[Rfam]
RNA: Small nucleolar RNA SNORA3/SNORA45 family
Organism: Castor canadensis
RNA sequence: GUUGAGGCUAGAGUCCACACUUGAGUAUUGCUAUUGCGUUAGUGUGCUAGAGUCCUUGAAGAAUGAAUGCUGACUUUAUUCACUGGCUGCAGGCCUCAUGGCACAGUCAGUCCCCAGGUUAGUGACAUGC
Numbered sequence: 001g002u003u004g005a006g007g008c009u010a011g012a013g014u015c016c017a018c019a020c021u022u023g024a025g026u027a028u029u030g031c032u033a034u035u036g037c038g039u040u041a042g043u044g045u046g047c048u049a050g051a052g053u054c055c056u057u058g059a060a061g062a063a064u065g066a067a068u069g070c071u072g073a074c075u076u077u078a079u080u081c082a083c084u085g086g087c088u089g090c091a092g093g094c095c096u097c098a099u100g101g102c103a104c105a106g107u108c109a110g111u112c113c114c115c116a117g118g119u120u121a122g123u124g125a126c127a128u129g130c
Stems, first nucleotide, its partner, number of pairs: 002059005007053003012048002016046006025037003070122007082111005088105002